A member of the RNA family "Burkholderia sRNA 39" from Trinickia fusca, 126 nucleotides long.
[Rfam]
RNA sequence: GUAUUGUGGGGACCACCUCCUUGAGAGGUGUUUGGCAGUAGCCAGCAGUGACGGUAUGCACGCGAGUCUAGACCCCUUCGUGCACCCUCUUAGCAGCCGUCCUAGCCAGCCAUGCCGCUUUUUUUU
Numbered sequence: 001g002u003a004u005u006g007u008g009g010g011g012a013c014c015a016c017c018u019c020c021u022u023g024a025g026a027g028g029u030g031u032u033u034g035g036c037a038g039u040a041g042c043c044a045g046c047a048g049u050g051a052c053g054g055u056a057u058g059c060a061c062g063c064g065a066g067u068c069u070a071g072a073c074c075c076c077u078u079c080g081u082g083c084a085c086c087c088u089c090u091u092a093g094c095a096g097c098c099g100u101c102c103u104a105g106c107c108a109g110c111c112a113u114g115c116c117g118c119u120u121u122u123u124u125u126u
Stems, first nucleotide, its partner, number of pairs: 006118004010111002014030006034043003045106002050101006057084004063080004
By type it is a small RNA. Gene Ontology term of the family: bacterial biofilm matrix. Rfam's curators write: Trans-encoded, exhibits differential expression profiles dependent on growth phase and cell stimuli, such as antbiotics and serum. May function in bacterial metabolism and adaptation to the host. Shown to be expressed in biotin.